Record summary: Shown here is a 99-nucleotide RNA sequence from Cynoglossus semilaevis, a member of the family "Z30 small nucleolar RNA". Rfam links the family to the GO terms nucleolus and RNA processing. For this family Rfam cites "Purified box C/D snoRNPs are able to reproduce site-specific 2'-O-methylation of target RNA in vitro" (Galardi et al., Mol Cell Biol, 2002).

Nucleotides: 099
Stems, first nucleotide, its partner, number of pairs: 003097002038055001040053002
Number, partner (000 for none) and nucleotide at each position: 001000c002000u003097g004096c005000a006000g007000u008000g009000a010000u011000g012000a013000g014000c015000c016000u017000c018000g019000a020000g021000g022000u023000g024000a025000a026000u027000g028000a029000u030000c031000u032000g033000g034000u035000a036000c037000u038055g039000c040053u041052u042000c043000c044000u045000u046000c047000c048000a049000g050000g051000g052041a053040a054000a055038c056000u057000g058000u059000g060000a061000c062000c063000a064000g065000a066000g067000a068000a069000u070000g071000a072000u073000g074000u075000c076000a077000g078000u079000u080000u081000g082000a083000a084000u085000c086000u087000u088000c089000u090000c091000u092000c093000u094000g095000a096004g097003c098000a099000g